RNA sequence: GUUAUUGAAACCGAAAGGGGUUUCCCUUAUAUCUAGAAUGUCCUUCGGGACUAUGGACAUAAACGCGCUCGUAAUAAGCGGAUCGGACCCGGGGGCGGUACCCGGCGACUCCACCAAAACCCGUUCAUUUGGCGGACAGAGGGGUCGAAACAGGAUCGACGAACGUCUAAAGGGGUUAGCUUUGUCUCGGUGAGUUACCACCGUUAUCGGUACACUUAAGCUAGUUGCAAAUGACAACAAAGCUCCAGUAGCCCUCGCAGCGUAAGCUGUGCGGAACACUGAAAAUUAAGUCCUUGCGCCUAGCAGCGUAAGGCGGGGUUCGCAGGCACCUGGCAACAGAAGCCUGCAUC
Dot-bracket structure: .......................................((((....))))...(((((.....((((((........((..(((...(((((.......)))))(((((((............................)))))))............))).)).......))))..))..)))))((((..[[.[[[)))).....]]]]]......................................................................................................[[[[..((((((]]]]..........))))))...
Shown here is a 350-nucleotide RNA sequence from Litoreibacter roseus, a member of the family "Alphaproteobacteria transfer-messenger RNA". By type it is a non-coding RNA gene. Bacterial tmRNA, also known as 10Sa RNA or SsrA, is named for its dual tRNA and mRNA-like properties. Its role is to liberate the mRNA from a stalled ribosome. To accomplish this part of the tmRNA is used as a reading frame that ends in a translation stop signal. The broken mRNA is replaced in the ribosome by the tmRNA and translation of the tmRNA leads to addition of a proteolysis tag to the incomplete protein enabling recognition by a protease. Recently a number of permuted tmRNA genes have been found encoded in two parts. tmRNAs have been identified in eubacteria and some chloroplasts but are absent from archaeal and eukaryote nuclear genomes. Gene Ontology term of the family: RNA catabolic process. The match comes from Rfam's covariance-model search (304 bits). Clan: tRNA clan.